[Rfam]
The record is a 77-nucleotide RNA from Natribacillus halophilus, which matches "Glycine riboswitch aptamer" in Rfam. The match comes from Rfam's covariance-model search (33 bits). The source organism's lineage runs through Bacteria, Bacillati, Bacillota, Bacillaceae and Natribacillus.

RNA sequence: UCUCUGGAGAGCGCUUAAAUCACCAAAGGGGUAAACUCCGUCAUGGGGAGUUGAACUCUCAGGUCCAAGGACAGAGA
Numbered sequence: 001u002c003u004c005u006g007g008a009g010a011g012c013g014c015u016u017a018a019a020u021c022a023c024c025a026a027a028g029g030g031g032u033a034a035a036c037u038c039c040g041u042c043a044u045g046g047g048g049a050g051u052u053g054a055a056c057u058c059u060c061a062g063g064u065c066c067a068a069g070g071a072c073a074g075a076g077a
Stems, first nucleotide, its partner, number of pairs: 001077006013020001022064003026059001029058003035051005